[Rfam]
RNA sequence: GGAAAUAAGAAUUGUCAGAAGAAGGGAUAGCGAAAUCGUGGCUCUACGAACAGGAACGUGAUAAUAAGGCGUAUAUAGCGGAUAAGAGGGCAUCAAACUCUAAAGUCCAAAAAGGUAGUCGUAACCUAUAUGCGUAAAUCACGAGAGUAAUUGAAUUCGUACUAAGAUUUUCUA
Numbered sequence: 001g002g003a004a005a006u007a008a009g010a011a012u013u014g015u016c017a018g019a020a021g022a023a024g025g026g027a028u029a030g031c032g033a034a035a036u037c038g039u040g041g042c043u044c045u046a047c048g049a050a051c052a053g054g055a056a057c058g059u060g061a062u063a064a065u066a067a068g069g070c071g072u073a074u075a076u077a078g079c080g081g082a083u084a085a086g087a088g089g090g091c092a093u094c095a096a097a098c099u100c101u102a103a104a105g106u107c108c109a110a111a112a113a114g115g116u117a118g119u120c121g122u123a124a125c126c127u128a129u130a131u132g133c134g135u136a137a138a139u140c141a142c143g144a145g146a147g148u149a150a151u152u153g154a155a156u157u158c159g160u161a162c163u164a165a166g167a168u169u170u171u172c173u174a
Base pairs, nucleotide, nucleotide: 004013005012006011024173025172026171027170031166037159038158040156041148042147043146044145045144057143058142059141060140061139062138069135070134071133073131074130075129076128077127078126080108081107082106083105086101088099089098
RNA: Group II catalytic intron D1-D4-3